[Rfam]
RNA sequence: GUGCCCUUUUAAGGUUGACGCAGUGCCUUAAGAGGCUAACACAGAAGGGCAAAGUAAGUCUCCGUAAAACCCGGAGAGGAGAUUGUCGGACUCCUCUUUGGAUCCUAUCUGGAGUCAUAGCU
Numbered sequence: 001g002u003g004c005c006c007u008u009u010u011a012a013g014g015u016u017g018a019c020g021c022a023g024u025g026c027c028u029u030a031a032g033a034g035g036c037u038a039a040c041a042c043a044g045a046a047g048g049g050c051a052a053a054g055u056a057a058g059u060c061u062c063c064g065u066a067a068a069a070c071c072c073g074g075a076g077a078g079g080a081g082a083u084u085g086u087c088g089g090a091c092u093c094c095u096c097u098u099u100g101g102a103u104c105c106u107a108u109c110u111g112g113a114g115u116c117a118u119a120g121c122u
Stems, first nucleotide, its partner, number of pairs: 002051009014040004019035001021032001058116001060114005071101007079093003083090002
Annotation
A member of the RNA family "Small nucleolar RNA SNORA26" from Equus caballus, 122 nucleotides long. Pairs were carried over by alignment from the consensus structure, which was predicted with RNAalifold. About the family: The snoRNA HBI-6 belong to the H/ACA family of snoRNAs, guiding the pseudouridylation of position U4522 if the 28S rRNA. HBI-6 is the human orthologue of mouse MBI-6 snoRNA. Taxonomically the source falls in Equus (Eukaryota, Eumetazoa, Vertebrata, Equidae). It scores 136 bits against the family's covariance model.